[Rfam]
RNA sequence: AGCGUCACACAGGUGGGCCGACGGUCGACCCCGGUGGCGACAGGAGCCGUGUUCGGCUCCGGAAAGCGACCU
Numbered sequence: 001a002g003c004g005u006c007a008c009a010c011a012g013g014u015g016g017g018c019c020g021a022c023g024g025u026c027g028a029c030c031c032c033g034g035u036g037g038c039g040a041c042a043g044g045a046g047c048c049g050u051g052u053u054c055g056g057c058u059c060c061g062g063a064a065a066g067c068g069a070c071c072u
Base pairs, nucleotide, nucleotide: 003039004038005037006036007035008034043060044059045058046057047056048055

The family of this 72-nucleotide RNA from Rhodococcus oxybenzonivorans is "hya RNA".